Notes:
Shown here is a 92-nucleotide sequence from Phrynocephalus forsythii, a member of the family "Small nucleolar RNA SNORD35". Lineage of the source: Eukaryota > Vertebrata > Sauria > Squamata > Phrynocephalus. Pairs were carried over by alignment from the consensus structure, which was predicted with PFOLD. It scores 55 bits against the family's covariance model. Rfam links the family to the GO terms nucleolus and RNA processing. The family's RNA type in Rfam is C/D-box small nucleolar RNA.
[Rfam]
RNA sequence: GGCAAGUGAUGUUGAUCUCACGAUGGUCUGCUGAUCUCCGUAGCAAGGGGAGCCCUGAUUACACUGCCUUAAGGCUUGACUGAUGCCUUUUG
Numbered sequence: 001g002g003c004a005a006g007u008g009a010u011g012u013u014g015a016u017c018u019c020a021c022g023a024u025g026g027u028c029u030g031c032u033g034a035u036c037u038c039c040g041u042a043g044c045a046a047g048g049g050g051a052g053c054c055c056u057g058a059u060u061a062c063a064c065u066g067c068c069u070u071a072a073g074g075c076u077u078g079a080c081u082g083a084u085g086c087c088u089u090u091u092g
Stems, first nucleotide, its partner, number of pairs: 001087004

The family has 8 seed sequences and 1,842 matches in Rfam 15.1.